Description
This 160-nucleotide sequence from Nomascus leucogenys belongs to the Rfam family "U1 spliceosomal RNA". It is annotated as a spliceosomal small nuclear RNA. The literature on the family includes a 1990 paper in Proc Natl Acad Sci U S A by Kretzner et al., "Saccharomyces cerevisiae U1 small nuclear RNA secondary structure contains both universal and yeast-specific domains". Pairs were carried over by alignment from the consensus structure, which is taken from published work. Taxonomically the source falls in Nomascus (Eukaryota, Opisthokonta, Gnathostomata, Hominoidea). The match comes from Rfam's covariance-model search (92 bits).
RNA sequence: AUACUUACCUAGCAGGGGAAAUAAUGUGAUUUCGGAGAUGGUUUUUCCUGGGUGUGGUUCAUUCCUUGCACUUUGUGCUGAUCCCUGCGAUUUUCCCAAAUGUGGAUGACUCCACUGUAUAAUUUGUGGUGGUAGAGGACUGCGUUCGCACUUACUCAUG
Numbered sequence: 001a002u003a004c005u006u007a008c009c010u011a012g013c014a015g016g017g018g019a020a021a022u023a024a025u026g027u028g029a030u031u032u033c034g035g036a037g038a039u040g041g042u043u044u045u046u047c048c049u050g051g052g053u054g055u056g057g058u059u060c061a062u063u064c065c066u067u068g069c070a071c072u073u074u075g076u077g078c079u080g081a082u083c084c085c086u087g088c089g090a091u092u093u094u095c096c097c098a099a100a101u102g103u104g105g106a107u108g109a110c111u112c113c114a115c116u117g118u119a120u121a122a123u124u125u126g127u128g129g130u131g132g133u134a135g136a137g138g139a140c141u142g143c144g145u146u147c148g149c150a151c152u153u154a155c156u157c158a159u160g
Stems, first nucleotide, its partner, number of pairs: 012118004016048006023042001025040003050085003054082001056079003064075001089112002091109001093106001095105002135157003142151001144149001